[Rfam]
RNA sequence: GUUAUCAAAUUCACCUCAAUUCACAUGUGUUGGGGUGGAUUGGAGUGGAAAUUAAUUUAAUUUCUACUCCAAUCCACUCCAACACAUGUGGAUUGAUGCGAAUUCGAUU
Numbered sequence: 001g002u003u004a005u006c007a008a009a010u011u012c013a014c015c016u017c018a019a020u021u022c023a024c025a026u027g028u029g030u031u032g033g034g035g036u037g038g039a040u041u042g043g044a045g046u047g048g049a050a051a052u053u054a055a056u057u058u059a060a061u062u063u064c065u066a067c068u069c070c071a072a073u074c075c076a077c078u079c080c081a082a083c084a085c086a087u088g089u090g091g092a093u094u095g096a097u098g099c100g101a102a103u104u105c106g107a108u109u
Stems, first nucleotide, its partner, number of pairs: 004108003008104005014098001016096017035077009045067003
Record summary:
Shown here is a 109-nucleotide sequence from Miscanthus lutarioriparius, a member of the family "MIR5565 microRNA precursor family". NCBI's taxonomy places the organism under Eukaryota, commelinids, Poaceae, Panicoideae, Miscanthus. It scores 112 bits against the family's covariance model. Gene Ontology terms of the family: miRNA-mediated post-transcriptional gene silencing and RISC complex.